[Rfam]
RNA sequence: AGAUACUAGGGCCCAAAGGCCAGACACCUGGCGCGAGCCCGCUUGCAAGAGGAAUUUUGACCUUAGGGCACGCCAAAAACAUAAAUAAGUAACCGUUUUUCACAGAAAAACCAGGGGAUUAUGAAUGUUUAUGACGACUGCGGAAAUGCGCAGCACGAAACAAUCUGGUAUCG
Numbered sequence: 001a002g003a004u005a006c007u008a009g010g011g012c013c014c015a016a017a018g019g020c021c022a023g024a025c026a027c028c029u030g031g032c033g034c035g036a037g038c039c040c041g042c043u044u045g046c047a048a049g050a051g052g053a054a055u056u057u058u059g060a061c062c063u064u065a066g067g068g069c070a071c072g073c074c075a076a077a078a079a080c081a082u083a084a085a086u087a088a089g090u091a092a093c094c095g096u097u098u099u100u101c102a103c104a105g106a107a108a109a110a111c112c113a114g115g116g117g118a119u120u121a122u123g124a125a126u127g128u129u130u131a132u133g134a135c136g137a138c139u140g141c142g143g144a145a146a147u148g149c150g151c152a153g154c155a156c157g158a159a160a161c162a163a164u165c166u167g168g169u170a171u172c173g
Base pairs, nucleotide, nucleotide: 002172003171004170005169006168007167011069012068013067014066017063018062019061021059022058023057024055027052028051029050033046034045035044036043037042075132077130078129079128080127081126082125085122086121087120088119093115094114095111096110097109098108099107100106101105136165137164139162140161147155148154149153
Rfam assigns this 173-nucleotide sequence from Lachnoclostridium sp. An14 to the family "Clostridiales-1 RNA". It is annotated as a small RNA. It scores 75 bits against the family's covariance model.